RNA sequence: CCACCCAACGGUGAUGGAUUUCCACCGCGAACCGCCGGUGCUUGUGCGCCGCGCUGAUGAUUCCUACUGAACU
Numbered sequence: 001c002c003a004c005c006c007a008a009c010g011g012u013g014a015u016g017g018a019u020u021u022c023c024a025c026c027g028c029g030a031a032c033c034g035c036c037g038g039u040g041c042u043u044g045u046g047c048g049c050c051g052c053g054c055u056g057a058u059g060a061u062u063c064c065u066a067c068u069g070a071a072c073u
Base pairs, nucleotide, nucleotide: 010026011025012024013023016064017063018062020060021059034054035053
Rfam assigns this 73-nucleotide RNA sequence from Hymenobacter sp. PAMC 26628 to the family "Fluoride riboswitch aptamer (crcB RNA motif)".